[Rfam]
The family of this 157-nucleotide RNA sequence from Psychromonas ingrahamii is "Molybdenum/Tungsten riboswitch aptamer (Moco RNA motif)". Pairs were carried over by alignment from the consensus structure, which is taken from published work. Lineage of the source: Bacteria > Pseudomonadota > Alteromonadales > Psychromonadaceae > Psychromonas ingrahamii. A reference for the family is Regulski et al. (2008), "in molybdenum cofactor and tungsten cofactor metabolism", Mol Microbiol.
RNA sequence: UUUUAAAACCAGCUCCGAGCUUAAUAAAACUAAGUUUCCUUUUUAAGGUAAAUAAGUCUGUUAAGCCGCUUGUCUGACAUUUUGGUCAGCGCAAGAAGGGUAAAGAGAGAAAUGUCUUUGCCUCCCGUAUUUGGAAAGGAACUUAACAUGAGCCAAC
Numbered sequence: 001u002u003u004u005a006a007a008a009c010c011a012g013c014u015c016c017g018a019g020c021u022u023a024a025u026a027a028a029a030c031u032a033a034g035u036u037u038c039c040u041u042u043u044u045a046a047g048g049u050a051a052a053u054a055a056g057u058c059u060g061u062u063a064a065g066c067c068g069c070u071u072g073u074c075u076g077a078c079a080u081u082u083u084g085g086u087c088a089g090c091g092c093a094a095g096a097a098g099g100g101u102a103a104a105g106a107g108a109g110a111a112a113u114g115u116c117u118u119u120g121c122c123u124c125c126c127g128u129a130u131u132u133g134g135a136a137a138g139g140a141a142c143u144u145a146a147c148a149u150g151a152g153c154c155a156a157c
Base pairs, nucleotide, nucleotide: 003151004150011143012142014140015139016138019066020065021064022063023062024061025060026059029057030056034053035052036051037050069095070094071093072092073091098123099122100121101120102119103118104117105116106115108113124134125133